[Rfam]
The record is a 77-nucleotide RNA sequence from Ochotona princeps, which matches "Small nucleolar RNA SNORD69" in Rfam. By type it is a C/D-box small nucleolar RNA. About the family: snoRNA HBII-210 belongs to the C/D family of snoRNAs. It is the human orthologue of the mouse MBII-210 and is predicted to guide the 2'O-ribose methylation of large 28S rRNA on residue G4464.
RNA sequence: AACAUGAAGUAAAUGAUGAUACACUGGAUCUGACUGACUGUGCUGAGCUUGUUCAAUCCAACCCUGAGCUUCAUGUU
Numbered sequence: 001a002a003c004a005u006g007a008a009g010u011a012a013a014u015g016a017u018g019a020u021a022c023a024c025u026g027g028a029u030c031u032g033a034c035u036g037a038c039u040g041u042g043c044u045g046a047g048c049u050u051g052u053u054c055a056a057u058c059c060a061a062c063c064c065u066g067a068g069c070u071u072c073a074u075g076u077u
Stems, first nucleotide, its partner, number of pairs: 001077010